Source information:
Rfam assigns this 78-nucleotide sequence from Gammacoronavirus delphinapteri to the family "Coronavirus frameshifting stimulation element". Rfam links the family to the GO term viral translational frameshifting. It is one of the family's seed sequences. The literature on the family includes a 2021 paper in Science by Bhatt et al., "Structural basis of ribosomal frameshifting during translation of the SARS-CoV-2 RNA genome".
[Rfam]
RNA sequence: GGGUACGGGGUCUCAGUGAAGCUCGACUGAGGCCCUGUGCGUCGGGAUUGUUACCUGAUGUUGUUAAAAGAGCUUUUG
Numbered sequence: 001g002g003g004u005a006c007g008g009g010g011u012c013u014c015a016g017u018g019a020a021g022c023u024c025g026a027c028u029g030a031g032g033c034c035c036u037g038u039g040c041g042u043c044g045g046g047a048u049u050g051u052u053a054c055c056u057g058a059u060g061u062u063g064u065u066a067a068a069a070g071a072g073c074u075u076u077u078g
Stems, first nucleotide, its partner, number of pairs: 008035009020074005037064003043057002046055001048053001